[Rfam]
RNA: Ruegeria cis52 sRNA
RNA sequence: UUCUCAGCGCAUGCUUCAGCACGAUGUUCUGGAAGCUCACCCCCUUGAGCCGCGCCGUGCGGAUGUAUUGCGCGGUCAUCACCUCGGUCAUCGACGCCCGCGUCAUCCGCGCGAUGUAGCCCAUACCGUAGAGCGCGAUGGUCAGCACCGGCAGGGUGAAGUUGGUGAAGUUGGCGUC
Numbered sequence: 001u002u003c004u005c006a007g008c009g010c011a012u013g014c015u016u017c018a019g020c021a022c023g024a025u026g027u028u029c030u031g032g033a034a035g036c037u038c039a040c041c042c043c044c045u046u047g048a049g050c051c052g053c054g055c056c057g058u059g060c061g062g063a064u065g066u067a068u069u070g071c072g073c074g075g076u077c078a079u080c081a082c083c084u085c086g087g088u089c090a091u092c093g094a095c096g097c098c099c100g101c102g103u104c105a106u107c108c109g110c111g112c113g114a115u116g117u118a119g120c121c122c123a124u125a126c127c128g129u130a131g132a133g134c135g136c137g138a139u140g141g142u143c144a145g146c147a148c149c150g151g152c153a154g155g156g157u158g159a160a161g162u163u164g165g166u167g168a169a170g171u172u173g174g175c176g177u178c
Stems, first nucleotide, its partner, number of pairs: 004141003008137003012133001014131002016128001019126001021124001028123001031120001038113001040111001042109001046105003051100002054097001055075008082096001084094003145178001148174005156163001
Dot-bracket structure: ...(((.(((.(.(((..(.(......(..(......(.(.(...(((..((.(((((((((.....))))))))......(.(((.....))).)).))..)))...).).)......)..)).).).)).).))).)))...(..(((((...(......)......)))))...)